[Rfam]
The record is a 183-nucleotide sequence from Clostridium sp. BL8, which matches "Lysine riboswitch aptamer" in Rfam. The match comes from Rfam's covariance-model search (102 bits). Taxonomically the source falls in Clostridium (Bacteria, Bacillati, Clostridia, Clostridiaceae).
RNA sequence: AAGUGGGGUAGAGGCGCGAUAUUUAACAGUUCUUAUAGGAGCUUGAGGAAGCUGUGAUUCUAAGAAGAAGGAAAUGUCGCCGAAGUUUGUAAUAGCCUCAAUAUUACAUGCUGGGUCUGCAGUUAAGAGCUGCAGGACUGUCUUAAUAAACAUCCCAGUUUAUUAAGUUGCGCUAUCUCAGUU
Numbered sequence: 001a002a003g004u005g006g007g008g009u010a011g012a013g014g015c016g017c018g019a020u021a022u023u024u025a026a027c028a029g030u031u032c033u034u035a036u037a038g039g040a041g042c043u044u045g046a047g048g049a050a051g052c053u054g055u056g057a058u059u060c061u062a063a064g065a066a067g068a069a070g071g072a073a074a075u076g077u078c079g080c081c082g083a084a085g086u087u088u089g090u091a092a093u094a095g096c097c098u099c100a101a102u103a104u105u106a107c108a109u110g111c112u113g114g115g116u117c118u119g120c121a122g123u124u125a126a127g128a129g130c131u132g133c134a135g136g137a138c139u140g141u142c143u144u145a146a147u148a149a150a151c152a153u154c155c156c157a158g159u160u161u162a163u164u165a166a167g168u169u170g171c172g173c174u175a176u177c178u179c180a181g182u183u
Base pairs, nucleotide, nucleotide: 006178007177008176009175010174011173016080017079018078019077020076021075022074023073024072031065032064033063034062035061037059038058084112085111086110088108089107090106091105092104093103094102113139114138116136117135118134119133120132121131122130123129142167143166144165145164146163147162148161149160150159